[Rfam]
Nucleotides: 173
Base pairs, nucleotide, nucleotide: 006168007167008166009165010164011159012158013096015155016154017153020149021148022147025145026144027143028142029141030140031139032138039114040113041112042111043110045074046073047072048071049070054065055064056063057062081105082104083103084102087099088098089097116133117132118131119130120129
Number, partner (000 for none) and nucleotide at each position: 001000a002000g003000a004000u005000g006168u007167c008166c009165u010164c011159g012158u013096u014000a015155g016154g017153u018000g019000a020149g021148g022147c023000u024000c025145c026144u027143a028142u029141a030140c031139g032138a033000a034000c035000a036000c037000a038000c039114g040113c041112c042111a043110c044000u045074g046073c047072c048071c049070g050000g051000a052000a053000a054065c055064a056063u057062c058000g059000a060000a061000a062057g063056a064055u065054g066000c067000c068000a069000a070049u071048g072047g073046g074045u075000u076000g077000a078000a079000c080000a081105g082104a083103a084102a085000u086000u087099g088098c089097c090000g091000g092000a093000u094000u095000a096013a097089g098088g099087c100000u101000c102084u103083u104082u105081u106000u107000a108000a109000u110043g111042u112041g113040g114039c115000u116133g117132a118131a119130g120129a121000a122000c123000c124000u125000a126000g127000g128000u129120u130119c131118u132117u133116u134000u135000a136000c137000g138032u139031c140030g141029u142028a143027u144026a145025g146000u147022g148021c149020c150000a151000a152000a153017g154016c155015u156000c157000g158012a159011c160000u161000u162000g163000g164010g165009g166008g167007g168006a169000a170000u171000c172000g173000g